SAM (S-adenosyl methionine) riboswitch aptamer: a 117-nucleotide sequence. SAM-IV is a mRNA element that regulates gene expression via direct sensing of S-adenosylmethionine (SAM or AdoMet). Rfam links the family to the GO terms regulation of gene expression and S-adenosylmethionine metabolic process.
RNA sequence: GGUCACGAGAGUCGGCCGCACGCCUCCGGACGUGGCCGACCGGCAACCGCGCCACCCGGCACGGUGCCCUCCGGAGAAGACCCGGGCCGCCGGGACCCCGGCGGUCACGACGGGCAC
Numbered sequence: 001g002g003u004c005a006c007g008a009g010a011g012u013c014g015g016c017c018g019c020a021c022g023c024c025u026c027c028g029g030a031c032g033u034g035g036c037c038g039a040c041c042g043g044c045a046a047c048c049g050c051g052c053c054a055c056c057c058g059g060c061a062c063g064g065u066g067c068c069c070u071c072c073g074g075a076g077a078a079g080a081c082c083c084g085g086g087c088c089g090c091c092g093g094g095a096c097c098c099c100g101g102c103g104g105u106c107a108c109g110a111c112g113g114g115c116a117c
Stems, first nucleotide, its partner, number of pairs: 001082004009041001011040006021032002042068003047064003051060002085106009